[Rfam]
Nucleotides: 366
Base pairs, nucleotide, nucleotide: 001362002361003360004359005358007356008355009354010353011351012318013317014316015315016314017313018312020045021044024041025040026039027038028037050349051348052347054346055345056344057343058342059218060217061216062215066253067252068251069250071214072213073212074211075210076090077089078088079087080086091106093104094103095102096101107209108208113205114204115203127150128149129146130145131144132143133142134141135140158176159175160174161173162172163171178200179198180197181196182195184193185192186191222275223274224273225272233265234264235263236262237261245257246256247255248254283300284299285298286297287296288295289294
Number, partner (000 for none) and nucleotide at each position: 001362a002361c003360a004359g005358c006000a007356g008355a009354u010353c011351g012318g013317u014316u015315u016314g017313u018312c019000g020045c021044u022000g023000g024041c025040u026039a027038u028037c029000u030000u031000g032000c033000a034000a035000a036000a037028g038027a039026u040025g041024g042000a043000a044021a045020g046000a047000g048000g049000a050349a051348a052347g053000u054346c055345c056344g057343g058342g059218c060217a061216a062215c063000a064000c065000a066253g067252a068251g069250c070000a071214u072213c073212a074211u075210a076090c077089u078088u079087c080086c081000u082000a083000a084000c085000g086080g087079g088078a089077a090076g091106c092000u093104g094103u095102u096101c097000g098000c099000g100000a101096g102095g103094g104093c105000a106091g107209a108208g109000u110000a111000a112000g113205g114204u115203a116000a117000c118000a119000g120000a121000a122000a123000a124000u125000a126000a127150c128149c129146g130145c131144u132143u133142c134141g135140a136000u137000u138000u139000a140135u141134c142133g143132g144131a145130g146129u147000a148000a149128g150127g151000g152000u153000g154000a155000a156000a157000a158176g159175g160174u161173g162172a163171g164000g165000u166000a167000a168000g169000a170000g171163c172162u173161c174160a175159c176158c177000g178200g179198u180197c181196c182195u183000u184193g185192u186191a187000g188000c189000a190000a191186u192185a193184c194000c195182g196181g197180g198179a199000g200178c201000c202000g203115u204114a205113c206000u207000a208108c209107u210075u211074a212073u213072g214071a215062g216061u217060u218059g219000c220000a221000a222275g223274a224273c225272c226000a227000u228000g229000u230000a231000u232000a233265c234264c235263g236262a237261c238000g239000c240000a241000u242000g243000u244000a245257g246256g247255g248254c249000u250069g251068c252067u253066c254248g255247c256246c257245c258000g259000a260000u261237g262236u263235c264234g265233g266000g267000g268000g269000g270000u271000a272225g273224g274223u275222c276000g277000c278000u279000a280000g281000a282000g283300c284299c285298u286297g287296u288295u289294g290000g291000c292000a293000a294289c295288a296287g297286c298285a299284g300283g301000a302000g303000u304000a305000g306000a307000c308000a309000a310000a311000u312018g313017a314016c315015a316014a317013g318012c319000a320000c321000u322000u323000c324000g325000u326000u327000u328000u329000a330000c331000g332000a333000g334000g335000c336000a337000c338000a339000g340000a341000a342058c343057c344056c345055g346054g347052c348051u349050u350000a351011c352000a353010g354009a355008u356007c357000g358005g359004c360003u361002g362001u363000a364000u365000u366000u
Shown here is a 366-nucleotide sequence from Dysgonomonas sp. HDW5A, a member of the family "Bacterial RNase P class A". The source organism's lineage runs through Bacteria, Bacteroidota, Bacteroidia, Bacteroidales and Dysgonomonas. Rfam describes the family as follows. Ribonuclease P (RNase P) is a ubiquitous endoribonuclease, found in archaea, bacteria and eukarya as well as chloroplasts and mitochondria. It scores 250 bits against the family's covariance model. The family's RNA type in Rfam is ribozyme.